Background: The record is a 119-nucleotide RNA, which matches "Bacteriophage Diversity-Generating Retroelement RNA" in Rfam. Rfam's curators put it in the seed alignment. It is annotated as a small RNA.

RNA sequence: GCUCUGCCAACGCUCCGGCUUGGCAGCAGACCAAUCCACAUGUGGUCAGCCAGCGCUGUCUGCUUCGCAAUACAUUUCGGGUCGGCAUAACGCCUAGUAGAAUCCAAAGCGCAGCCGAC
Numbered sequence: 001g002c003u004c005u006g007c008c009a010a011c012g013c014u015c016c017g018g019c020u021u022g023g024c025a026g027c028a029g030a031c032c033a034a035u036c037c038a039c040a041u042g043u044g045g046u047c048a049g050c051c052a053g054c055g056c057u058g059u060c061u062g063c064u065u066c067g068c069a070a071u072a073c074a075u076u077u078c079g080g081g082u083c084g085g086c087a088u089a090a091c092g093c094c095u096a097g098u099a100g101a102a103u104c105c106a107a108a109g110c111g112c113a114g115c116c117g118a119c
Base pairs, nucleotide, nucleotide: 001027002026005025006024007023008022009021010020012019013018061069062068063067080119082118083117084116085115086114091111092110093109100104